[Rfam]
The record is a 37-nucleotide sequence, which matches "abiF RNA" in Rfam. Rfam classes the family as a small RNA. About the family: Actinobacteria, Bacteroidetes, Clostridia, Proteobacteria, one Clostridia phage. Rfam 15.1 lists 282 matches to the family in 274 species.
RNA sequence: CCCACCAAGCCUCUCAACGAUGCUUAAAUCGGUGGGU
Numbered sequence: 001c002c003c004a005c006c007a008a009g010c011c012u013c014u015c016a017a018c019g020a021u022g023c024u025u026a027a028a029u030c031g032g033u034g035g036g037u
Base pairs, nucleotide, nucleotide: 001036002035003034004033005032006031008024009023010022
Dot-bracket structure: ((((((.(((...........)))......)))))).